[Rfam]
RNA sequence: AGCUGCGUGGUGACCACAAAGCGAACUAUUCUUUCGCCUUUUACUAAAGAAUACCGUGUGGGCGCCACAAUGAGCAGCAUACGCUAAUUUUUAAAGGGUCCUUCCCCACAAGGAAGGGU
Numbered sequence: 001a002g003c004u005g006c007g008u009g010g011u012g013a014c015c016a017c018a019a020a021g022c023g024a025a026c027u028a029u030u031c032u033u034u035c036g037c038c039u040u041u042u043a044c045u046a047a048a049g050a051a052u053a054c055c056g057u058g059u060g061g062g063c064g065c066c067a068c069a070a071u072g073a074g075c076a077g078c079a080u081a082c083g084c085u086a087a088u089u090u091u092u093a094a095a096g097g098g099u100c101c102u103u104c105c106c107c108a109c110a111a112g113g114a115a116g117g118g119u
Stems, first nucleotide, its partner, number of pairs: 003077004008067005014061005027053008095119001099118006